Description:
The family of this 86-nucleotide sequence from Nelumbo nucifera is "Small nucleolar RNA R44/J54/Z268 family". Clan: SNORD74 clan. Rfam classes the family as a C/D-box small nucleolar RNA. The source organism's lineage runs through Eukaryota, Tracheophyta, Mesangiospermae, Nelumbonaceae and Nelumbo.
[Rfam]
RNA sequence: AAUGCAAGUGAUGAUAAAACAGACAGGGACAUCAGCACUCCUCUGGGGCAUGAUGACUUGUUCUUUGGGAAUCCCUCUGAAGCAUG
Numbered sequence: 001a002a003u004g005c006a007a008g009u010g011a012u013g014a015u016a017a018a019a020c021a022g023a024c025a026g027g028g029a030c031a032u033c034a035g036c037a038c039u040c041c042u043c044u045g046g047g048g049c050a051u052g053a054u055g056a057c058u059u060g061u062u063c064u065u066u067g068g069g070a071a072u073c074c075c076u077c078u079g080a081a082g083c084a085u086g
Stems, first nucleotide, its partner, number of pairs: 002085004